[Rfam]
RNA sequence: UCCUAUACCCGAAAGUGACUGCAGGCUGCCCGUGCCCUGGUCAUUGGUGGUGCGGGAAGAGGAAUCACUGAGAAGAGCUUGCAUUCAGAGGGUCCAGCCAUCCCUUCCUAAUCUGGAGCUUUCCCACC
Numbered sequence: 001u002c003c004u005a006u007a008c009c010c011g012a013a014a015g016u017g018a019c020u021g022c023a024g025g026c027u028g029c030c031c032g033u034g035c036c037c038u039g040g041u042c043a044u045u046g047g048u049g050g051u052g053c054g055g056g057a058a059g060a061g062g063a064a065u066c067a068c069u070g071a072g073a074a075g076a077g078c079u080u081g082c083a084u085u086c087a088g089a090g091g092g093u094c095c096a097g098c099c100a101u102c103c104c105u106u107c108c109u110a111a112u113c114u115g116g117a118g119c120u121u122u123c124c125c126a127c128c
Base pairs, nucleotide, nucleotide: 001057002056003055004054006052007051008050009049014045015044016043017042018041019040020039021038024036025035026034070123071122073121074120075119083112084111085110088106089105090104091103092102
The family of this 128-nucleotide sequence from Suricata suricatta is "Small nucleolar RNA SNORA71". The members of this family belong to the H/ACA class of snoRNAs which bind a number of proteins (including dyskerin, Gar1p and Nop10p) to form snoRNP complexes. This class of snoRNAs are thought to guide the sites of modification of uridines to pseudouridines by forming direct base pairing interactions with substrate RNAs. This family includes U71 (SNORA71), ACA39 (SNORA39) and ACA60 (SNORA60). U71 and ACA60 are predicted to guide the pseudouridylation of U406 and U1004 in 18S rRNA respectively. There is currently no target RNA identified for ACA39. Rfam 15.1 lists 1,805 matches to the family in 606 species. It scores 72 bits against the family's covariance model. For this family Rfam cites "The family of box ACA small nucleolar RNAs is defined by an evolutionarily conserved secondary structure and ubiquitous sequence elements essential for RNA accumulation" (Ganot et al., Genes Dev, 1997). The family's RNA type in Rfam is H/ACA-box small nucleolar RNA.